[Rfam]
RNA sequence: ACUCCCUCUGUCACUUUGUCAAUGGACUUACAGCUUCAUCAGUUAUUCAAGUGGGGUGAGGGAAACAUCCUUUUAAGACUCAGGCAAAUGGAGUGCUUCUCUUAUAAACAUUUGAGGAAAAUAAAU
Numbered sequence: 001a002c003u004c005c006c007u008c009u010g011u012c013a014c015u016u017u018g019u020c021a022a023u024g025g026a027c028u029u030a031c032a033g034c035u036u037c038a039u040c041a042g043u044u045a046u047u048c049a050a051g052u053g054g055g056g057u058g059a060g061g062g063a064a065a066c067a068u069c070c071u072u073u074u075a076a077g078a079c080u081c082a083g084g085c086a087a088a089u090g091g092a093g094u095g096c097u098u099c100u101c102u103u104a105u106a107a108a109c110a111u112u113u114g115a116g117g118a119a120a121a122u123a124a125a126u
Stems, first nucleotide, its partner, number of pairs: 031058002034055002039050001042047001068119001070117004082102003086098002089095001
Rfam assigns this 126-nucleotide RNA sequence from Chinchilla lanigera to the family "Small nucleolar RNA SNORA27". It scores 70 bits against the family's covariance model. Rfam 15.1 lists 819 matches to the family in 543 species. Its family is annotated with nucleolus and RNA processing in the Gene Ontology. From the family's description: ACA27 is a member of the H/ACA class of snoRNA that guide the sites of modification of uridines to pseudouridines. It is annotated as an H/ACA-box small nucleolar RNA.